Background:
Group II catalytic intron D1-D4-4: a 133-nucleotide RNA from Novosphingobium sp. AP12. It scores 95 bits against the family's covariance model. The family has 90 seed sequences and 840 matches in Rfam 15.1. Lineage of the source: Bacteria > Pseudomonadota > Alphaproteobacteria > Sphingomonadaceae > Novosphingobium. Rfam's curators write: Group II introns are found in rRNA, tRNA and mRNA of organelles in fungi, plants and protists, and also in mRNA in bacteria.
RNA sequence: UAGGGGGUGAGAGGCCCACCCGGCGAUGCUCCAGCCGGAAGCAACCGGGGCAGGCAUGGAGGUGACGAAAUGUCUGAAGCCCCCGGAUAACGGUCCCGUAGGUGAUAGUGCGAGCGUACAGGCCGUAACGUGA
Numbered sequence: 001u002a003g004g005g006g007g008u009g010a011g012a013g014g015c016c017c018a019c020c021c022g023g024c025g026a027u028g029c030u031c032c033a034g035c036c037g038g039a040a041g042c043a044a045c046c047g048g049g050g051c052a053g054g055c056a057u058g059g060a061g062g063u064g065a066c067g068a069a070a071u072g073u074c075u076g077a078a079g080c081c082c083c084c085g086g087a088u089a090a091c092g093g094u095c096c097c098g099u100a101g102g103u104g105a106u107a108g109u110g111c112g113a114g115c116g117u118a119c120a121g122g123c124c125g126u127a128a129c130g131u132g133a
Stems, first nucleotide, its partner, number of pairs: 020038005046085005051076006061066001093106003097102001110126003